[Rfam]
RNA: terC RNA
RNA sequence: UCCCGGAUCCGGGCCCCUCUGGUGGCUGAGGCGUCAGCCAUGAUGUCGGAUUCUUCAU
Numbered sequence: 001u002c003c004c005g006g007a008u009c010c011g012g013g014c015c016c017c018u019c020u021g022g023u024g025g026c027u028g029a030g031g032c033g034u035c036a037g038c039c040a041u042g043a044u045g046u047c048g049g050a051u052u053c054u055u056c057a058u
Stems, first nucleotide, its partner, number of pairs: 006052007022041008